[Rfam]
Source information:
Shown here is a 76-nucleotide sequence from Alligator sinensis, a member of the family "Mammalian CPEB3 ribozyme". Gene Ontology term of the family: RNA nuclease activity. The family's consensus secondary structure is taken from published work. About the family: The mammalian CPEB3 ribozyme is a self cleaving RNA located in the second intron of the CPEB3 gene which belongs to a family of genes regulating messenger RNA polyadenylation. This ribozyme is highly conserved and found only in mammals. The CPEB3 ribozyme is structurally and biochemically related to the human hepatitis delta virus (HDV) ribozyme and the HDV ribozyme is proposed to have arisen from the human transcriptome. There is currently only one other known self cleaving ribozyme in mammals, the CoTC motif.

RNA sequence: GUCGCAGGUUUGAGGCCAUAGGAGAAGCACUCAUGGCACAGCCUUGCUAGAUUCCAAUGAAUCUACACUUUCUGCU
Numbered sequence: 001g002u003c004g005c006a007g008g009u010u011u012g013a014g015g016c017c018a019u020a021g022g023a024g025a026a027g028c029a030c031u032c033a034u035g036g037c038a039c040a041g042c043c044u045u046g047c048u049a050g051a052u053u054c055c056a057a058u059g060a061a062u063c064u065a066c067a068c069u070u071u072c073u074g075c076u
Stems, first nucleotide, its partner, number of pairs: 014043003020076002023073004027039001048065007